Source information:
Clostridiales-1 RNA: a 167-nucleotide RNA sequence from Butyrivibrio sp. INlla14. It is annotated as a small RNA. A search with the family's covariance model found it, with a score of 104 bits.
[Rfam]
RNA sequence: UGAUAUAAGCGCCAUAAUUCAUAAUGAUUAUAUGUUUACAUGAUAAUCAUUAUGAAUUCAUGGCCUGAACAAAUAUGAGGAAAAAGCAAUUUACAAAGUAAAUUAGCGGUUUCCGAAUGUUUGUAGAAUUGCGAAAAUGACGAAGUCAUGGAGCAAUUCGUAUAUCA
Numbered sequence: 001u002g003a004u005a006u007a008a009g010c011g012c013c014a015u016a017a018u019u020c021a022u023a024a025u026g027a028u029u030a031u032a033u034g035u036u037u038a039c040a041u042g043a044u045a046a047u048c049a050u051u052a053u054g055a056a057u058u059c060a061u062g063g064c065c066u067g068a069a070c071a072a073a074u075a076u077g078a079g080g081a082a083a084a085a086g087c088a089a090u091u092u093a094c095a096a097a098g099u100a101a102a103u104u105a106g107c108g109g110u111u112u113c114c115g116a117a118u119g120u121u122u123g124u125a126g127a128a129u130u131g132c133g134a135a136a137a138u139g140a141c142g143a144a145g146u147c148a149u150g151g152a153g154c155a156a157u158u159c160g161u162a163u164a165u166c167a
Stems, first nucleotide, its partner, number of pairs: 001167007011064003016058016032041003069124008079114004086107002088104005126159007137149004
The family's consensus secondary structure is taken from published work.